[Rfam]
RNA: Plastid-atpF group II-D1 intron
RNA sequence: UCGAAAUUUAUCGAUAUAGAACACUCAUGUCGACAAAAUAAAUCGAAUCUUUU
Numbered sequence: 001u002c003g004a005a006a007u008u009u010a011u012c013g014a015u016a017u018a019g020a021a022c023a024c025u026c027a028u029g030u031c032g033a034c035a036a037a038a039u040a041a042a043u044c045g046a047a048u049c050u051u052u053u
Stems, first nucleotide, its partner, number of pairs: 011033007